[Rfam]
RNA: Bacterial RNase P class A
Organism: Fenollaria massiliensis
RNA sequence: UGAGUAAACCAGAUGGUUGCGUGCUUAGGCAUGAGGAAAGUCCGUGCUCCAUAGAGCAGAAUGCUGGAUAACGUCCAGUGAAGGCGACUUCAAGGAUAGUGCAACAGAAAUAAACCGCCAUUAUUGGUAAGGGUGGAAAGGCAGUGUAAGAGACUACCUACUUUUAGGCGACUAAAGGUGACAUGUAAACCCCAUUCGGAGCAAAACAAACAAGGGUCAAAGGUUAUUGCUCGUAACCUCCUGUAAGGUAAGUUGCUUGAUUUUAGUGGUAACACUAAAACUAGAUAGAUAACCAUCUAAUACAGAACACGGCUUAUAGGUUUACUCAUUUA
Numbered sequence: 001u002g003a004g005u006a007a008a009c010c011a012g013a014u015g016g017u018u019g020c021g022u023g024c025u026u027a028g029g030c031a032u033g034a035g036g037a038a039a040g041u042c043c044g045u046g047c048u049c050c051a052u053a054g055a056g057c058a059g060a061a062u063g064c065u066g067g068a069u070a071a072c073g074u075c076c077a078g079u080g081a082a083g084g085c086g087a088c089u090u091c092a093a094g095g096a097u098a099g100u101g102c103a104a105c106a107g108a109a110a111u112a113a114a115c116c117g118c119c120a121u122u123a124u125u126g127g128u129a130a131g132g133g134u135g136g137a138a139a140g141g142c143a144g145u146g147u148a149a150g151a152g153a154c155u156a157c158c159u160a161c162u163u164u165u166a167g168g169c170g171a172c173u174a175a176a177g178g179u180g181a182c183a184u185g186u187a188a189a190c191c192c193c194a195u196u197c198g199g200a201g202c203a204a205a206a207c208a209a210a211c212a213a214g215g216g217u218c219a220a221a222g223g224u225u226a227u228u229g230c231u232c233g234u235a236a237c238c239u240c241c242u243g244u245a246a247g248g249u250a251a252g253u254u255g256c257u258u259g260a261u262u263u264u265a266g267u268g269g270u271a272a273c274a275c276u277a278a279a280a281c282u283a284g285a286u287a288g289a290u291a292a293c294c295a296u297c298u299a300a301u302a303c304a305g306a307a308c309a310c311g312g313c314u315u316a317u318a319g320g321u322u323u324a325c326u327c328a329u330u331u332a
Base pairs, nucleotide, nucleotide: 001328002327003326004325005324006323007322008321009320010319011317012297013296014295015294016293017292018291020033021032022031023030024029038315039314040313042312043311044310045309046308047201048200049199050198054232055231056230057229059197060196061195062194063193064078065077066076067075068074079093080091081090082089083088094192095191099190100189101186102185103184115132116131117128118127119126120125140158141157143155144154145153159181160179161178162177163176164175165174166173167172205254206253207252215241216240223237224236225235226234227233261280262279263278264277265276266275267274268273